[Rfam]
RNA: Small nucleolar RNA Z157/R69/R10
Organism: Ceratodon purpureus
RNA sequence: GUAUCCGCUAUGAUGAUACCAAAGUGUUUCGGACUAGAGUUUCUGAUCUGGGGUAGUAGCCAGUUCUGAAGAAACCACUCUUGGCUGUCUGAGCUCAUAU
Numbered sequence: 001g002u003a004u005c006c007g008c009u010a011u012g013a014u015g016a017u018a019c020c021a022a023a024g025u026g027u028u029u030c031g032g033a034c035u036a037g038a039g040u041u042u043c044u045g046a047u048c049u050g051g052g053g054u055a056g057u058a059g060c061c062a063g064u065u066c067u068g069a070a071g072a073a074a075c076c077a078c079u080c081u082u083g084g085c086u087g088u089c090u091g092a093g094c095u096c097a098u099a100u
Stems, first nucleotide, its partner, number of pairs: 001100004007094002040071004048063004